[Rfam]
This 91-nucleotide RNA from Colletotrichum asianum belongs to the Rfam family "tRNA". It scores 52 bits against the family's covariance model. The family's consensus secondary structure is taken from published work.

RNA sequence: UCCGGCAUAGUGUAAUGGUUAACAUACUCCGCUUUCAUCAGGUCGCAUCUGAAGAUCCGGAGAGCUCCGAGUUCGAUUCUCGGUGUCGGAA
Numbered sequence: 001u002c003c004g005g006c007a008u009a010g011u012g013u014a015a016u017g018g019u020u021a022a023c024a025u026a027c028u029c030c031g032c033u034u035u036c037a038u039c040a041g042g043u044c045g046c047a048u049c050u051g052a053a054g055a056u057c058c059g060g061a062g063a064g065c066u067c068c069g070a071g072u073u074c075g076a077u078u079c080u081c082g083g084u085g086u087c088g089g090a091a
Stems, first nucleotide, its partner, number of pairs: 001090007010025004027062005067083005
By type it is a transfer RNA. The source organism's lineage runs through Eukaryota, Opisthokonta, Pezizomycotina, Glomerellaceae and Colletotrichum gloeosporioides species complex.